RNA sequence: UUCGGUCCUCGGUAGUGGCUGCCGCAAACUGGUCGUUUGCGGUGGCUUCGAUCGAUGACCGUG
Numbered sequence: 001u002u003c004g005g006u007c008c009u010c011g012g013u014a015g016u017g018g019c020u021g022c023c024g025c026a027a028a029c030u031g032g033u034c035g036u037u038u039g040c041g042g043u044g045g046c047u048u049c050g051a052u053c054g055a056u057g058a059c060c061g062u063g
Stems, first nucleotide, its partner, number of pairs: 001063001003061005009055005017047013

The record is a 63-nucleotide sequence from Segniliparus rotundus, which matches "Actino-pnp RNA" in Rfam. NCBI's taxonomy places the organism under Bacteria, Actinomycetota, Mycobacteriales, Segniliparaceae, Segniliparus rotundus. Rfam classes the family as a cis-regulatory element.